[Rfam]
RNA sequence: CUACUAAUCUCGUAAGGGGUUGGGAUGGAUCGGCAGGAGUCAGCAGAAGGCAUAGUAGGUCAGGCGACCUGACUGAAGGCC
Numbered sequence: 001c002u003a004c005u006a007a008u009c010u011c012g013u014a015a016g017g018g019g020u021u022g023g024g025a026u027g028g029a030u031c032g033g034c035a036g037g038a039g040u041c042a043g044c045a046g047a048a049g050g051c052a053u054a055g056u057a058g059g060u061c062a063g064g065c066g067a068c069c070u071g072a073c074u075g076a077a078g079g080c081c
Stems, first nucleotide, its partner, number of pairs: 001027001004023008040047002049081003058074006